Rfam assigns this 264-nucleotide part of an RNA from Sulfuricella denitrificans to the family "Bacterial large subunit ribosomal RNA". Lineage of the source: Bacteria > Betaproteobacteria > Nitrosomonadales > Sulfuricella > Sulfuricella denitrificans. The base pairs follow the family's consensus structure, which is taken from published work. The literature on the family includes a 2001 paper in Science by Yusupov et al., "Crystal structure of the ribosome at 5.5 A resolution".
[Rfam]
RNA sequence: GGAAGUUUGAGGGGGGCUGCUCCUAGUACGAGAGGACCGGAGUGGACGAACCUCUGGUGUACCGGUUAUGACGCCAGUCGUAUCGCCGGGUAGCUAUGUUCGGAAGAGAUAACCGCUGAAAGCAUCUAAGCGGGAAACUUGCCUCAAGAUGAGACUUCCCAGGGACUUGAUCCCUCUAAAGGUUCGUUGAAGACCACAACGUUGAUAGGUCAGGUGUGGAAGCGCAGUAAUGCGUUAAGCUAACUGAUACUAAUUGACCGUGAG
Numbered sequence: 001g002g003a004a005g006u007u008u009g010a011g012g013g014g015g016g017c018u019g020c021u022c023c024u025a026g027u028a029c030g031a032g033a034g035g036a037c038c039g040g041a042g043u044g045g046a047c048g049a050a051c052c053u054c055u056g057g058u059g060u061a062c063c064g065g066u067u068a069u070g071a072c073g074c075c076a077g078u079c080g081u082a083u084c085g086c087c088g089g090g091u092a093g094c095u096a097u098g099u100u101c102g103g104a105a106g107a108g109a110u111a112a113c114c115g116c117u118g119a120a121a122g123c124a125u126c127u128a129a130g131c132g133g134g135a136a137a138c139u140u141g142c143c144u145c146a147a148g149a150u151g152a153g154a155c156u157u158c159c160c161a162g163g164g165a166c167u168u169g170a171u172c173c174c175u176c177u178a179a180a181g182g183u184u185c186g187u188u189g190a191a192g193a194c195c196a197c198a199a200c201g202u203u204g205a206u207a208g209g210u211c212a213g214g215u216g217u218g219g220a221a222g223c224g225c226a227g228u229a230a231u232g233c234g235u236u237a238a239g240c241u242a243a244c245u246g247a248u249a250c251u252a253a254u255u256g257a258c259c260g261u262g263a264g
Stems, first nucleotide, its partner, number of pairs: 001159008011145004017045007047102005055096003062089005067082006106140003113133005162176003178261001181259004185201005206252003209248005216240001219236001222235005